[Rfam]
RNA sequence: UCCCCCACAGUCCUCCGGUCCUCGUUUCUCGCAAGGGAUCCUAUUGCAGGCGCUCGCAUCAUUUGGUUACCCUCCCAUAUGCCGCUCUCGAGCCUGUAACAGGACCUCGUGAAUACCGCAGCUGGAUUAUGGUGGGUAGCGCGUCCUGUAUAGGACGUACCAAGCGGGCGGGUGAACGAGGCUCGGAACUUAACCCUAAGAAGAUAU
Numbered sequence: 001u002c003c004c005c006c007a008c009a010g011u012c013c014u015c016c017g018g019u020c021c022u023c024g025u026u027u028c029u030c031g032c033a034a035g036g037g038a039u040c041c042u043a044u045u046g047c048a049g050g051c052g053c054u055c056g057c058a059u060c061a062u063u064u065g066g067u068u069a070c071c072c073u074c075c076c077a078u079a080u081g082c083c084g085c086u087c088u089c090g091a092g093c094c095u096g097u098a099a100c101a102g103g104a105c106c107u108c109g110u111g112a113a114u115a116c117c118g119c120a121g122c123u124g125g126a127u128u129a130u131g132g133u134g135g136g137u138a139g140c141g142c143g144u145c146c147u148g149u150a151u152a153g154g155a156c157g158u159a160c161c162a163a164g165c166g167g168g169c170g171g172g173u174g175a176a177c178g179a180g181g182c183u184c185g186g187a188a189c190u191u192a193a194c195c196c197u198a199a200g201a202a203g204a205u206a207u
Stems, first nucleotide, its partner, number of pairs: 009190003015186004